MIR2118 microRNA precursor family: a 132-nucleotide sequence from Panicum virgatum.
It scores 100 bits against the family's covariance model.
The family has 7 seed sequences and 2,377 matches in Rfam 15.1.
NCBI's taxonomy places the organism under Eukaryota, Streptophyta, Magnoliopsida, Panicum, Panicum sect. Hiantes.
Nucleotides: 132
Stems, first nucleotide, its partner, number of pairs: 009123002012120001015117003020113003026107009036097002038094004044088003048083003052079001054078009
Number, partner (000 for none) and nucleotide at each position: 001000c002000a003000g004000c005000g006000g007000a008000a009123g010122a011000u012120g013000a014000a015117g016116a017115a018000a019000u020113g021112a022111g023000u024000g025000u026107c027106u028105a029104a030103g031102a032101g033100c034099a035000g036097u037096g038094g039093g040092c041091a042000c043000u044088g045087g046086a047000a048083c049082a050081u051000g052079g053000a054078g055077g056076a057075a058074a059073g060072c061071a062070u063000u064000a065000a066000u067000u068000u069000g070062g071061u072060g073059u074058u075057u076056u077055c078054c079052u080000g081050a082049u083048g084000c085000c086046u087045c088044c089000c090000u091041u092040g093039c094038c095000c096037u097036a098000u099034u100033g101032u102031u103030c104029u105028u106027a107026g108000u109000u110000g111022c112021u113020c114000c115017u116016u117015c118000c119000c120012u121000u122010u123009c124000c125000u126000u127000u128000u129000a130000c131000c132000u